[Rfam]
A member of the RNA family "Guanidine-I riboswitch aptamer" from Nitrosomonas sp. Nm51, 144 nucleotides long. The match comes from Rfam's covariance-model search (74 bits). The organism belongs to Nitrosomonas, within Bacteria.
RNA sequence: GAAAUGUGAGACUAGGGUUCCGGCUUUAUCAAUUUAUCUAUUGAUUAUUUAAAUUGAUGGGGUGGCUGGUUCGAGAGUCUCCGGUCUCGUUUGCUUUAUCUUCUCGAUAACGAGACUCCACGGAGGGAUAAAAGCCCGGGAGAU
Number, nucleotide and partner (000 for none) at each position: 001g000002a000003a000004a000005u000006g000007u000008g081009a080010g079011a078012c077013u000014a000015g072016g071017g000018u000019u000020c069021c068022g066023g063024c062025u061026u060027u059028a058029u057030c056031a055032a054033u053034u052035u051036a050037u000038c000039u000040a000041u000042u000043g000044a000045u000046u000047a000048u000049u000050u036051a035052a034053a033054u032055u031056g030057a029058u028059g027060g026061g025062g024063u023064g000065g000066c022067u000068g021069g020070u000071u016072c015073g000074a000075g000076a000077g012078u011079c010080u009081c008082c000083g117084g116085u115086c114087u113088c112089g111090u110091u000092u000093g000094c000095u000096u000097u000098a000099u000100c000101u000102u000103c000104u000105c000106g000107a000108u000109a000110a090111c089112g088113a087114g086115a085116c084117u083118c000119c139120a000121c142122g000123g000124a000125g137126g136127g135128a000129u000130a000131a000132a000133a000134g000135c127136c126137c125138g000139g119140g000141a000142g121143a000144u000